Record summary
The record is an 81-nucleotide RNA from Octodon degus, which matches "mir-3473 microRNA precursor family" in Rfam. It scores 74 bits against the family's covariance model.
RNA sequence: UCUACUGAGCCAUCUCCCCGGCCCCUAUUUUUAUUCUUAUAAAUUUACCCUUCAUAGGGGCUGGGGAGAUGGCUCAGUAGA
Number, nucleotide and partner (000 for none) at each position: 001u000002c080003u079004a078005c077006u076007g075008a074009g073010c072011c071012a070013u069014c068015u067016c066017c065018c064019c063020g062021g061022c060023c059024c058025c000026u000027a000028u000029u000030u000031u000032u000033a000034u000035u000036c000037u000038u000039a000040u000041a000042a000043a000044u000045u000046u000047a000048c000049c000050c000051u000052u000053c000054a000055u000056a000057g000058g024059g023060g022061c021062u020063g019064g018065g017066g016067a015068g014069a013070u012071g011072g010073c009074u008075c007076a006077g005078u004079a003080g002081a000